RNA sequence: CGGGAUGUGGCGCAGUCCGGUAGCGUACACGGCUGGGGGUCGUGUGGUCGCAGGUUCAAAUCCUGUCAUCCCGA
Numbered sequence: 001c002g003g004g005a006u007g008u009g010g011c012g013c014a015g016u017c018c019g020g021u022a023g024c025g026u027a028c029a030c031g032g033c034u035g036g037g038g039g040u041c042g043u044g045u046g047g048u049c050g051c052a053g054g055u056u057c058a059a060a061u062c063c064u065g066u067c068a069u070c071c072c073g074a
Stems, first nucleotide, its partner, number of pairs: 001073007010026004028044005050066005
The record is a 74-nucleotide sequence from Pseudalgibacter alginicilyticus, which matches "tRNA" in Rfam. The base pairs follow the family's consensus structure, which is taken from published work.